[Rfam]
RNA sequence: CCCUGACAGGUGCAAUACCGCGCCUGACAUUAGCCUAGACAGGAGAUACUCAUG
Numbered sequence: 001c002c003c004u005g006a007c008a009g010g011u012g013c014a015a016u017a018c019c020g021c022g023c024c025u026g027a028c029a030u031u032a033g034c035c036u037a038g039a040c041a042g043g044a045g046a047u048a049c050u051c052a053u054g
Stems, first nucleotide, its partner, number of pairs: 002043004007026005
This 54-nucleotide RNA belongs to the Rfam family "Mu-gpT-DE RNA". Rfam's curators put it in the seed alignment. Pairs were carried over by alignment from the consensus structure, which is taken from published work. By type it is a small RNA.